Rfam assigns this 125-nucleotide sequence from Carlito syrichta to the family "Small nucleolar RNA ACA64". Rfam 15.1 lists 9,537 matches to the family in 620 species. On this family, see Schattner et al., RNA 2006: "A computational screen for mammalian pseudouridylation guide H/ACA RNAs". NCBI's taxonomy places the organism under Eukaryota, Bilateria, Vertebrata, Euteleostomi, Carlito. It is annotated as an H/ACA-box small nucleolar RNA.
RNA sequence: GUUGGUUGAAAAUCAUCCUUGGCUUGGCCAUGGCGGUGGGUGAGAUUCAGUGCCCAGAGCCACCAGAGCCUCAGCUCACUGCUCACUGCCUCAGGUGCGAGGGGGAAACCCAGGCCCUGACAGUG
Numbered sequence: 001g002u003u004g005g006u007u008g009a010a011a012a013u014c015a016u017c018c019u020u021g022g023c024u025u026g027g028c029c030a031u032g033g034c035g036g037u038g039g040g041u042g043a044g045a046u047u048c049a050g051u052g053c054c055c056a057g058a059g060c061c062a063c064c065a066g067a068g069c070c071u072c073a074g075c076u077c078a079c080u081g082c083u084c085a086c087u088g089c090c091u092c093a094g095g096u097g098c099g100a101g102g103g104g105g106a107a108a109c110c111c112a113g114g115c116c117c118u119g120a121c122a123g124u125g
Stems, first nucleotide, its partner, number of pairs: 005051006013043004022034003065118001068115004076106002079103002084097003